[Rfam]
RNA sequence: UCUUUCUUUGUCUGUGAUGUAUUCAAGUGGACUGAUUUAUUUGAUGUUAUAAAAUUAAUUUCGUCACUACCACUGAGGCAGAGUUAAA
Numbered sequence: 001u002c003u004u005u006c007u008u009u010g011u012c013u014g015u016g017a018u019g020u021a022u023u024c025a026a027g028u029g030g031a032c033u034g035a036u037u038u039a040u041u042u043g044a045u046g047u048u049a050u051a052a053a054a055u056u057a058a059u060u061u062c063g064u065c066a067c068u069a070c071c072a073c074u075g076a077g078g079c080a081g082a083g084u085u086a087a088a
Stems, first nucleotide, its partner, number of pairs: 001088001003086001006083007

A member of the RNA family "Small nucleolar RNA SNORD70" from Thrips palmi, 88 nucleotides long. From the family's description: snoRNA HBII-234 belongs to the C/D family of snoRNAs. A search with the family's covariance model found it, with a score of 52 bits. The pairing is the family consensus, mapped onto this sequence. NCBI's taxonomy places the organism under Eukaryota, Bilateria, Protostomia, Dicondylia, Thrips.